[Rfam]
RNA sequence: UGAGUUUAAAGGCAAACUAUUCGAAAGAAUAGGACGCAAAGCUAUGGGUCUAAGGUAGUGGUUUAGUGAUAAGCAACUAACUAUGACAGCCGGUUACCAAA
Numbered sequence: 001u002g003a004g005u006u007u008a009a010a011g012g013c014a015a016a017c018u019a020u021u022c023g024a025a026a027g028a029a030u031a032g033g034a035c036g037c038a039a040a041g042c043u044a045u046g047g048g049u050c051u052a053a054g055g056u057a058g059u060g061g062u063u064u065a066g067u068g069a070u071a072a073g074c075a076a077c078u079a080a081c082u083a084u085g086a087c088a089g090c091c092g093g094u095u096a097c098c099a100a101a
Stems, first nucleotide, its partner, number of pairs: 012037002017032006040095004046091002048087003055081002058078001
Shown here is a 101-nucleotide RNA sequence from Cytobacillus solani, a member of the family "c-di-GMP-I riboswitch aptamer". GEMM was predicted in a large-scale screen for bacterial structured RNA regulatory elements. NCBI's taxonomy places the organism under Bacteria, Bacillati, Bacillota, Bacilli, Cytobacillus. The family's consensus secondary structure is taken from published work.